[Rfam]
RNA sequence: CCCGCGACAGGACGGAAAGACCCCGUGGAGCUUUACUGUAGCUUGAUAUUGAAUGUUUGUGCUGCAUGUGCAGGAUAGGUAGGAGACUUUGAAGUCGGAACGCUAGUUUCGAUUGAGUCACCCUUGAGAUACUACCUCUGUUGUAUGAACGUUCUAACUCUGAUCAGUUAUCCUGAUCGAAGACAGUGUCUGGCAGGCAGUUUGACUGGGGCGGUCGCCUCCUAAAAGAUAACGGAGGCGCUCAAAGGUUUGCUCAGAAUGGUUGGAAAUCAUUCGUAGCGUGUAAAGGCAUAAGCAAGCUUGACUGUGAGACUGACAAGUCGAGCAGGUACGAAAGUAGGACUUAGUGAUCCGGUGGUUCCGUAUGGAAGGGCCAUCGCUCAACGGACAAAAGCUACCCCGGGGAUAACAGGCUCAUCUCCCCCAAGAGUCCACAUCGACGGGGAGGUUUGGCACCUCGAUGUCGGCUCAUCGCAUCCUGGGGCUGUAGUCGGUCCCAAGGGUUGGGCUGUUCGCCCAUUAAAGCGGUACGCGAGCUGGGUUCAGAACGUCGUGAGACAGUUCGGUCCCUAUCCGUCGUGGGCGCA
Numbered sequence: 001c002c003c004g005c006g007a008c009a010g011g012a013c014g015g016a017a018a019g020a021c022c023c024c025g026u027g028g029a030g031c032u033u034u035a036c037u038g039u040a041g042c043u044u045g046a047u048a049u050u051g052a053a054u055g056u057u058u059g060u061g062c063u064g065c066a067u068g069u070g071c072a073g074g075a076u077a078g079g080u081a082g083g084a085g086a087c088u089u090u091g092a093a094g095u096c097g098g099a100a101c102g103c104u105a106g107u108u109u110c111g112a113u114u115g116a117g118u119c120a121c122c123c124u125u126g127a128g129a130u131a132c133u134a135c136c137u138c139u140g141u142u143g144u145a146u147g148a149a150c151g152u153u154c155u156a157a158c159u160c161u162g163a164u165c166a167g168u169u170a171u172c173c174u175g176a177u178c179g180a181a182g183a184c185a186g187u188g189u190c191u192g193g194c195a196g197g198c199a200g201u202u203u204g205a206c207u208g209g210g211g212c213g214g215u216c217g218c219c220u221c222c223u224a225a226a227a228g229a230u231a232a233c234g235g236a237g238g239c240g241c242u243c244a245a246a247g248g249u250u251u252g253c254u255c256a257g258a259a260u261g262g263u264u265g266g267a268a269a270u271c272a273u274u275c276g277u278a279g280c281g282u283g284u285a286a287a288g289g290c291a292u293a294a295g296c297a298a299g300c301u302u303g304a305c306u307g308u309g310a311g312a313c314u315g316a317c318a319a320g321u322c323g324a325g326c327a328g329g330u331a332c333g334a335a336a337g338u339a340g341g342a343c344u345u346a347g348u349g350a351u352c353c354g355g356u357g358g359u360u361c362c363g364u365a366u367g368g369a370a371g372g373g374c375c376a377u378c379g380c381u382c383a384a385c386g387g388a389c390a391a392a393a394g395c396u397a398c399c400c401c402g403g404g405g406a407u408a409a410c411a412g413g414c415u416c417a418u419c420u421c422c423c424c425c426a427a428g429a430g431u432c433c434a435c436a437u438c439g440a441c442g443g444g445g446a447g448g449u450u451u452g453g454c455a456c457c458u459c460g461a462u463g464u465c466g467g468c469u470c471a472u473c474g475c476a477u478c479c480u481g482g483g484g485c486u487g488u489a490g491u492c493g494g495u496c497c498c499a500a501g502g503g504u505u506g507g508g509c510u511g512u513u514c515g516c517c518c519a520u521u522a523a524a525g526c527g528g529u530a531c532g533c534g535a536g537c538u539g540g541g542u543u544c545a546g547a548a549c550g551u552c553g554u555g556a557g558a559c560a561g562u563u564c565g566g567u568c569c570c571u572a573u574c575c576g577u578c579g580u581g582g583g584c585g586c587a
Stems, first nucleotide, its partner, number of pairs: 001583008010575003014570002022404004027400002029396005035201004042193002045190004051154012064141003068137001078136005085119003094113008159180002162178006204216004217239006240385001242342002248300006255279001257275006281290002305328004311322003330339003353379007361372002413454003417451001418448007428438002465540001466538004470532001471529005478503002481498006505519005546564004550559003
RNA: Bacterial large subunit ribosomal RNA, nucleotides 2035 to 2621